[Rfam]
RNA sequence: GUGGCCGUGUAGUCCCACCUGGCAUCGGCGUCCAGAAGGGCGUUCUCGCCGAACUGCUCGCCGUCGGCGAGGACGGCGACCGCGAUCUCGUCGCCGUACUUGCCGGCGGAGGUCUGGCUGAUCCGGCCGUGGGCGAUCAGGUGGAUCUUCUCGGCGGGGGUCCCCCGCUCGACCAGCACCUCACCGGCGCGGAACUCCCGCUGCUCGCAGCGGCCGGCCAGGGCGGUCAGCACGUCCACGUCCUCGAAGCCGCGCAGCAGGGCGAGUUCGCCGAGCUCCCGGGGGAUGACCCGGACCGUGGCGCCGUCCUGGACGAACUCGAUGCGCCCGUCGCCGACGGUGUAGCUCAGCCGGCGGUUCACCCGGUAGGCGCCGCCCUUGGUCUCCACCCAGGGAAGCAUCCGCAGCAGCCAGCGGGAGGUGAUCUCCUGCAUCUGCGGGGCGGACUUGGUCGUGGUGGCGAGGUUGCGGGCAGCCGCGGUGCUCAGGCUGGACUGCGGCCGG
Numbered sequence: 001g002u003g004g005c006c007g008u009g010u011a012g013u014c015c016c017a018c019c020u021g022g023c024a025u026c027g028g029c030g031u032c033c034a035g036a037a038g039g040g041c042g043u044u045c046u047c048g049c050c051g052a053a054c055u056g057c058u059c060g061c062c063g064u065c066g067g068c069g070a071g072g073a074c075g076g077c078g079a080c081c082g083c084g085a086u087c088u089c090g091u092c093g094c095c096g097u098a099c100u101u102g103c104c105g106g107c108g109g110a111g112g113u114c115u116g117g118c119u120g121a122u123c124c125g126g127c128c129g130u131g132g133g134c135g136a137u138c139a140g141g142u143g144g145a146u147c148u149u150c151u152c153g154g155c156g157g158g159g160g161u162c163c164c165c166c167g168c169u170c171g172a173c174c175a176g177c178a179c180c181u182c183a184c185c186g187g188c189g190c191g192g193a194a195c196u197c198c199c200g201c202u203g204c205u206c207g208c209a210g211c212g213g214c215c216g217g218c219c220a221g222g223g224c225g226g227u228c229a230g231c232a233c234g235u236c237c238a239c240g241u242c243c244u245c246g247a248a249g250c251c252g253c254g255c256a257g258c259a260g261g262g263c264g265a266g267u268u269c270g271c272c273g274a275g276c277u278c279c280c281g282g283g284g285g286a287u288g289a290c291c292c293g294g295a296c297c298g299u300g301g302c303g304c305c306g307u308c309c310u311g312g313a314c315g316a317a318c319u320c321g322a323u324g325c326g327c328c329c330g331u332c333g334c335c336g337a338c339g340g341u342g343u344a345g346c347u348c349a350g351c352c353g354g355c356g357g358u359u360c361a362c363c364c365g366g367u368a369g370g371c372g373c374c375g376c377c378c379u380u381g382g383u384c385u386c387c388a389c390c391c392a393g394g395g396a397a398g399c400a401u402c403c404g405c406a407g408c409a410g411c412c413a414g415c416g417g418g419a420g421g422u423g424a425u426c427u428c429c430u431g432c433a434u435c436u437g438c439g440g441g442g443c444g445g446a447c448u449u450g451g452u453c454g455u456g457g458u459g460g461c462g463a464g465g466u467u468g469c470g471g472g473c474a475g476c477c478g479c480g481g482u483g484c485u486c487a488g489g490c491u492g493g494a495c496u497g498c499g500g501c502c503g504g
Stems, first nucleotide, its partner, number of pairs: 007389003011385002014382002021325001025322004031316002038310003047303005055232001057230002060227005065111001068108001075103001077102003082097003086093001118221003122217002127212001130209001131206005140198001143197002149193002154190003158185002234296004240290003244286002250282003254278001256277003260271001262269001329342004353377005360372001362370002391431005397425001399423003403418001405416001407415001437476002440473001443470002446467001447465003451461002480502003484499001486497003
Shown here is a 504-nucleotide RNA sequence from Streptomyces showdoensis, a member of the family "Saccharopolyspora sRNA 350". The family's consensus secondary structure was predicted with RNAfold. Gene Ontology term of the family: regulation of secondary metabolite biosynthetic process. On this family, see Liu et al., PLoS One 2013: "Prediction and characterization of small non-coding RNAs related to secondary metabolites in Saccharopolyspora erythraea". It scores 173 bits against the family's covariance model.